[Rfam]
RNA sequence: GGGUCUAUGUCGAUGAUAGCAUCAAAAGGUCGUAAAGGGAGAUGAUGACAUAAAAAUCAUGCUCAAUAGUAUUACGCUGAGGCCC
Numbered sequence: 001g002g003g004u005c006u007a008u009g010u011c012g013a014u015g016a017u018a019g020c021a022u023c024a025a026a027a028g029g030u031c032g033u034a035a036a037g038g039g040a041g042a043u044g045a046u047g048a049c050a051u052a053a054a055a056a057u058c059a060u061g062c063u064c065a066a067u068a069g070u071a072u073u074a075c076g077c078u079g080a081g082g083c084c085c
Base pairs, nucleotide, nucleotide: 001085002084003083004082005079008076009075
This 85-nucleotide RNA sequence from Rattus norvegicus belongs to the Rfam family "Small nucleolar RNA SNORD115".
Its family is annotated with nucleolus and RNA processing in the Gene Ontology.
The family has 32 seed sequences and 3,387 matches in Rfam 15.1.
The literature on the family includes a 2000 paper in Proc Natl Acad Sci U S A by Cavaille et al., "Identification of brain-specific and imprinted small nucleolar RNA genes exhibiting an unusual genomic organization".
It is annotated as a C/D-box small nucleolar RNA.